[Rfam]
The record is a 131-nucleotide RNA sequence from Brassica carinata, which matches "small nucleolar RNA snoR127" in Rfam. The match comes from Rfam's covariance-model search (136 bits). Gene Ontology terms of the family: nucleolus and RNA processing. The base pairs follow the family's consensus structure, which was predicted with RNAalifold. On this family, see Chen and Wu, Nucleic Acids Res 2009: "Mining small RNA sequencing data: a new approach to identify small nucleolar RNAs in Arabidopsis". The family has 3 seed sequences and 273 matches in Rfam 15.1.
RNA sequence: CUGGAGUGAUGAUGCUUAGCCAAAUCAGAUAUGUGCUCCAAGAGGCAUGAAUCUUGUUGAGAAAAUGGGAUUGCCUCUUGUUGUAGCGCGUCUUAGACGAUAUCACAGAGAAUGGUGUUUGCCUGACCAGA
Numbered sequence: 001c002u003g004g005a006g007u008g009a010u011g012a013u014g015c016u017u018a019g020c021c022a023a024a025u026c027a028g029a030u031a032u033g034u035g036c037u038c039c040a041a042g043a044g045g046c047a048u049g050a051a052u053c054u055u056g057u058u059g060a061g062a063a064a065a066u067g068g069g070a071u072u073g074c075c076u077c078u079u080g081u082u083g084u085a086g087c088g089c090g091u092c093u094u095a096g097a098c099g100a101u102a103u104c105a106c107a108g109a110g111a112a113u114g115g116u117g118u119u120u121g122c123c124u125g126a127c128c129a130g131a
Base pairs, nucleotide, nucleotide: 001130002129003128004127